Annotation
The record is a 395-nucleotide sequence from Colletotrichum gloeosporioides, which matches "Nuclear RNase P" in Rfam. The match comes from Rfam's covariance-model search (40 bits).
[Rfam]
RNA sequence: UCCUCUUCAACGCUGCGUUUCUAUGCUACGAACAGAGAGUUUGUGCGCAAGCACGAUUUCUCGGGAAGCUCGUCUUCUCACAAUGGCAUAUGAGAAAUUCGGAGUAACAUCUUCACUACCACCCAAUGUCUCCUGCCCUGUGUGGGAUGACGGGUCUGCCCGCGAGGGUCUGGCGUGACUUCACGCUUGCAAUUGGCAUCAGAAAAGCAGGGCCCGCAGCCGUCCUCGUGUAUACCCUUCGGGGGAAGACGGGGUUCUGGACUCGGUGACCCUUUGGGAGAGUCAUUGCGAAGAUUGUGCACAGCACUUGAGUGCGAUACGCAGCGUCUGGGAUCCCGACUGGCUUCGGCUGGGCGGGGGACUUGACAAUUCAAUUCCGAUCAUUCUGUUGAGGA
Numbered sequence: 001u002c003c004u005c006u007u008c009a010a011c012g013c014u015g016c017g018u019u020u021c022u023a024u025g026c027u028a029c030g031a032a033c034a035g036a037g038a039g040u041u042u043g044u045g046c047g048c049a050a051g052c053a054c055g056a057u058u059u060c061u062c063g064g065g066a067a068g069c070u071c072g073u074c075u076u077c078u079c080a081c082a083a084u085g086g087c088a089u090a091u092g093a094g095a096a097a098u099u100c101g102g103a104g105u106a107a108c109a110u111c112u113u114c115a116c117u118a119c120c121a122c123c124c125a126a127u128g129u130c131u132c133c134u135g136c137c138c139u140g141u142g143u144g145g146g147a148u149g150a151c152g153g154g155u156c157u158g159c160c161c162g163c164g165a166g167g168g169u170c171u172g173g174c175g176u177g178a179c180u181u182c183a184c185g186c187u188u189g190c191a192a193u194u195g196g197c198a199u200c201a202g203a204a205a206a207g208c209a210g211g212g213c214c215c216g217c218a219g220c221c222g223u224c225c226u227c228g229u230g231u232a233u234a235c236c237c238u239u240c241g242g243g244g245g246a247a248g249a250c251g252g253g254g255u256u257c258u259g260g261a262c263u264c265g266g267u268g269a270c271c272c273u274u275u276g277g278g279a280g281a282g283u284c285a286u287u288g289c290g291a292a293g294a295u296u297g298u299g300c301a302c303a304g305c306a307c308u309u310g311a312g313u314g315c316g317a318u319a320c321g322c323a324g325c326g327u328c329u330g331g332g333a334u335c336c337c338g339a340c341u342g343g344c345u346u347c348g349g350c351u352g353g354g355c356g357g358g359g360g361a362c363u364u365g366a367c368a369a370u371u372c373a374a375u376u377c378c379g380a381u382c383a384u385u386c387u388g389u390u391g392a393g394g395a
Stems, first nucleotide, its partner, number of pairs: 001395004008388002012325007022090004035079004100379005111293004158169004172187005189289004195284003210273003326367003330363002